[Rfam]
RNA sequence: GGCUUUUUGAAUCCGUGCUGAGAUUUCGUUAGACACCAACCCAUAAGAGCUGAUCAGAAUUCCAAGAUAAGUGAAGUU
Numbered sequence: 001g002g003c004u005u006u007u008u009g010a011a012u013c014c015g016u017g018c019u020g021a022g023a024u025u026u027c028g029u030u031a032g033a034c035a036c037c038a039a040c041c042c043a044u045a046a047g048a049g050c051u052g053a054u055c056a057g058a059a060u061u062c063c064a065a066g067a068u069a070a071g072u073g074a075a076g077u078u
Stems, first nucleotide, its partner, number of pairs: 002077005008071001011068003016064002020062003024058003028054003
mir-3492 microRNA precursor family: a 78-nucleotide RNA from Schistosoma mansoni. It scores 52 bits against the family's covariance model. The base pairs follow the family's consensus structure, which was predicted with RNAalifold. Taxonomically the source falls in Schistosoma (Eukaryota, Bilateria, Strigeidida, Schistosomatoidea).